[Rfam]
RNA sequence: CUUGAAGAAGCGUUUUGUCCACGUGGACAGAAAUUACUCCCUUAAGGGCGCACUUUAUGUCUACGUGGACAAAACGCUUCUUCAAGG
Numbered sequence: 001c002u003u004g005a006a007g008a009a010g011c012g013u014u015u016u017g018u019c020c021a022c023g024u025g026g027a028c029a030g031a032a033a034u035u036a037c038u039c040c041c042u043u044a045a046g047g048g049c050g051c052a053c054u055u056u057a058u059g060u061c062u063a064c065g066u067g068g069a070c071a072a073a074a075c076g077c078u079u080c081u082u083c084a085a086g087g
Base pairs, nucleotide, nucleotide: 001086002085003084004083005082006081007080008079009078010077011076012075013074014073015072016071017070018069019068020067021066023064024063025062026061027060028059029058031056032055033054035052037050040047041046
Shown here is an 87-nucleotide RNA sequence from Gossypium schwendimanii, a member of the family "MIR7486 microRNA precursor family". It scores 78 bits against the family's covariance model. The family has 9 seed sequences and 10,132 matches in Rfam 15.1.